Background:
Shown here is a 90-nucleotide RNA, a member of the family "GA-cis RNA". The family's RNA type in Rfam is small RNA.
RNA sequence: UAGAGGAGGAACCGUUAUGUGCGAAGCGCAUAAUUAAGAAUCGGUUCCGACGACCUGCCGUCUGGCGAAUGCGAGGGGGCGAUACGAAUU
Numbered sequence: 001u002a003g004a005g006g007a008g009g010a011a012c013c014g015u016u017a018u019g020u021g022c023g024a025a026g027c028g029c030a031u032a033a034u035u036a037a038g039a040a041u042c043g044g045u046u047c048c049g050a051c052g053a054c055c056u057g058c059c060g061u062c063u064g065g066c067g068a069a070u071g072c073g074a075g076g077g078g079g080c081g082a083u084a085c086g087a088a089u090u
Stems, first nucleotide, its partner, number of pairs: 008048006016032006057080003061076002065072002
Dot-bracket structure: .......((((((..((((((.....))))))..........))))))........(((.((..((....))..)).)))..........